[Rfam]
RNA sequence: AUAUGCAUUACAGGGCAAGAUCACCAUUGGCAGAGAUCUAUUACUUCAUUCUUGCAUCAUAUGCAUAAAUGUUUGUGGUGAGCUCUCUGCCAAAGGAGAUUUGCCCGGUAAUUCUCUU
Numbered sequence: 001a002u003a004u005g006c007a008u009u010a011c012a013g014g015g016c017a018a019g020a021u022c023a024c025c026a027u028u029g030g031c032a033g034a035g036a037u038c039u040a041u042u043a044c045u046u047c048a049u050u051c052u053u054g055c056a057u058c059a060u061a062u063g064c065a066u067a068a069a070u071g072u073u074u075g076u077g078g079u080g081a082g083c084u085c086u087c088u089g090c091c092a093a094a095g096g097a098g099a100u101u102u103g104c105c106c107g108g109u110a111a112u113u114c115u116c117u118u
Base pairs, nucleotide, nucleotide: 005114007112008111009110011108013106014105015104016103017102018101019100022098024096025095028092029091030090031089032088033087034086035085036084
Annotation: This 118-nucleotide sequence belongs to the Rfam family "mir-399 microRNA precursor family". From the family's description: mir-399 was identified in both Arabidopsis thaliana and Oryza sativa computationally and was later experimentally verified. mir-399 is thought to target mRNAs coding for a phosphatase transporter. The mature sequence is excised from the 3' arm of the hairpin. Rfam's curators put it in the seed alignment. The base pairs follow the family's consensus structure, which was predicted with PFOLD. On this family, see Jones-Rhoades and Bartel, Mol Cell 2004: "Computational Identification of Plant MicroRNAs and Their Targets, Including a Stress-Induced miRNA".